RNA sequence: UCAACACCAAUGAAGGAAAAAGUAAUUAAAAAGAGCGGAUAUAAGAGAGGAUAGCCACUAGCUGAAAGGUUGUUCAUCAAGCAUUUUAAUGAAAGACAUUCCGUAGGUGCUAUGUUGAAAUUUAUAGUAAACAUAGCCGCGAGCAGGCGUUAUUGUUCAAAGUGGAGUUAUCGAUCAUGCAUAACUCAACUAGGGUGGCAACACGGGUUAUUCGCUCGUCCCUUUU
Numbered sequence: 001u002c003a004a005c006a007c008c009a010a011u012g013a014a015g016g017a018a019a020a021a022g023u024a025a026u027u028a029a030a031a032a033g034a035g036c037g038g039a040u041a042u043a044a045g046a047g048a049g050g051a052u053a054g055c056c057a058c059u060a061g062c063u064g065a066a067a068g069g070u071u072g073u074u075c076a077u078c079a080a081g082c083a084u085u086u087u088a089a090u091g092a093a094a095g096a097c098a099u100u101c102c103g104u105a106g107g108u109g110c111u112a113u114g115u116u117g118a119a120a121u122u123u124a125u126a127g128u129a130a131a132c133a134u135a136g137c138c139g140c141g142a143g144c145a146g147g148c149g150u151u152a153u154u155g156u157u158c159a160a161a162g163u164g165g166a167g168u169u170a171u172c173g174a175u176c177a178u179g180c181a182u183a184a185c186u187c188a189a190c191u192a193g194g195g196u197g198g199c200a201a202c203a204c205g206g207g208u209u210a211u212u213c214g215c216u217c218g219u220c221c222c223u224u225u226u
Stems, first nucleotide, its partner, number of pairs: 007107002015102004025090006038078003051073006110136007138149003165187007192223004203219005
Rfam assigns this 226-nucleotide RNA sequence from Pelagirhabdus alkalitolerans to the family "T-box leader".
A search with the family's covariance model found it, with a score of 136 bits.
Rfam describes the family as follows. Uncharged tRNA acts as the effector for transcription antitermination of genes in the T-box leader family. T-boxes are found upstream of many aminoacyl-tRNA synthetase genes and some amino acid biosynthetic genes usually in Gram-positive bacteria.
The family's consensus secondary structure is taken from published work.
The family has 48 seed sequences and 19,395 matches in Rfam 15.1.